Shown here is a 69-nucleotide RNA sequence from Polaribacter irgensii, a member of the family "Flavo-1 RNA". The family has 201 seed sequences and 7,497 matches in Rfam 15.1.

RNA sequence: GUUGAGCCCUGAUUGAAGUGACAUCUUUUUUGCUUUUCCAAAAAGAUAUAGCGGAAAGCAGGAAAUAGC
Numbered sequence: 001g002u003u004g005a006g007c008c009c010u011g012a013u014u015g016a017a018g019u020g021a022c023a024u025c026u027u028u029u030u031u032g033c034u035u036u037u038c039c040a041a042a043a044a045g046a047u048a049u050a051g052c053g054g055a056a057a058g059c060a061g062g063a064a065a066u067a068g069c
Stems, first nucleotide, its partner, number of pairs: 009061003013057002018052002023047004029042004